[Rfam]
RNA: wcaG RNA
RNA sequence: UCUAAUUUCUUGCUUUACUUUAAAGCAAGUGGUGCGGAUGGAGGUAACUCCCGCUCUGUUUCUUACUUCAGGUAAAAGAGUAAGUGGCGUGCAUGUAA
Numbered sequence: 001u002c003u004a005a006u007u008u009c010u011u012g013c014u015u016u017a018c019u020u021u022a023a024a025g026c027a028a029g030u031g032g033u034g035c036g037g038a039u040g041g042a043g044g045u046a047a048c049u050c051c052c053g054c055u056c057u058g059u060u061u062c063u064u065a066c067u068u069c070a071g072g073u074a075a076a077a078g079a080g081u082a083a084g085u086g087g088c089g090u091g092c093a094u095g096u097a098a
Stems, first nucleotide, its partner, number of pairs: 009029006016023001039053003043049002055072004062084006
Dot-bracket structure: ........((((((.(......))))))).........(((.((...)).))).[[[[...((((((.]]]]......))))))..............